[Rfam]
RNA sequence: UGGUGCUCGCUGGGUGUAACAGCCACUCCAUGUGGAAAUGUAUUGACGUGCCAGUGGAGGAGCUGUUACCUGCAGAGAGUCA
Numbered sequence: 001u002g003g004u005g006c007u008c009g010c011u012g013g014g015u016g017u018a019a020c021a022g023c024c025a026c027u028c029c030a031u032g033u034g035g036a037a038a039u040g041u042a043u044u045g046a047c048g049u050g051c052c053a054g055u056g057g058a059g060g061a062g063c064u065g066u067u068a069c070c071u072g073c074a075g076a077g078a079g080u081c082a
Base pairs, nucleotide, nucleotide: 010075011074012073016069017068018067019066020065021064022063023062026059027058028057029056030055031054033053034052035051
A member of the RNA family "mir-194 microRNA precursor family" from Sinocyclocheilus anshuiensis, 82 nucleotides long. The base pairs follow the family's consensus structure, which was predicted with RNAalifold. A search with the family's covariance model found it, with a score of 75 bits. Rfam 15.1 lists 936 matches to the family in 630 species.